[Rfam]
RNA sequence: CAUCAGCUGGUUAGGCUGACUUACCCACCUCCCUGAUGGGGGCUCAGUGUGAAGUGCCGCAAAAAGUGGAUUCCCUGGUUGGGUAUGGCAGCUUACUUCUUUUCUGUAUUGCUCUAAGGGACCUUGGAGACAUCU
Dot-bracket structure: ..(((.............(((...((.(..........).))...))).)))........................(((.........(((..(...........)..))).........)))............
RNA: Small nucleolar RNA SNORA70
Organism: Physeter macrocephalus